The family of this 173-nucleotide RNA from Leptobrachium leishanense is "Small Cajal body specific RNA 16".
For this family Rfam cites "Cajal body-specific small nuclear RNAs: a novel class of 2'-O-methylation and pseudouridylation guide RNAs" (Darzacq et al., EMBO J, 2002).
Rfam's curators write: scaRNAs are a specific class of small nuclear RNAs which localise to the Cajal bodies and guide the modification of RNA polymerase II transcribed spliceosomal RNAs U1, U2, U4, U5 and U12. ACA47 belongs to the H/ACA box class of guide RNAs as it has the predicted hairpin-hinge-hairpin-tail structure, the conserved H/ACA-box motifs and is found associated with GAR1. ACA47 is predicted to guide the pseudouridylation of residue U5 of the U1 spliceosomal snRNA.

RNA sequence: UUGGUCAGGGGACUGGCUUCUGGAUCCUGCAUUCUUCUGGCUGUGGGUCUGUACCAGACAGCCUUAACCUGGACCUAGAGUAGCCAGGUCGGACCCACCUGUGUCGGCCUGAGCAGUUACAGGUGUGAACACAUUACAGUAUAUUGUGCUCAUGUAUAGUACUGCACACAGCU
Numbered sequence: 001u002u003g004g005u006c007a008g009g010g011g012a013c014u015g016g017c018u019u020c021u022g023g024a025u026c027c028u029g030c031a032u033u034c035u036u037c038u039g040g041c042u043g044u045g046g047g048u049c050u051g052u053a054c055c056a057g058a059c060a061g062c063c064u065u066a067a068c069c070u071g072g073a074c075c076u077a078g079a080g081u082a083g084c085c086a087g088g089u090c091g092g093a094c095c096c097a098c099c100u101g102u103g104u105c106g107g108c109c110u111g112a113g114c115a116g117u118u119a120c121a122g123g124u125g126u127g128a129a130c131a132c133a134u135u136a137c138a139g140u141a142u143a144u145u146g147u148g149c150u151c152a153u154g155u156a157u158a159g160u161a162c163u164g165c166a167c168a169c170a171g172c173u
Base pairs, nucleotide, nucleotide: 003075004074005073006072008070009069010068015063016062017061018060019058020057021056022055025053026047027046028045029044031042033040085101087099088098089097110168111167113165114164115163116162117161121157126152127151128150130148131147132146133145
Rfam links the family to the GO terms nucleolus and RNA processing.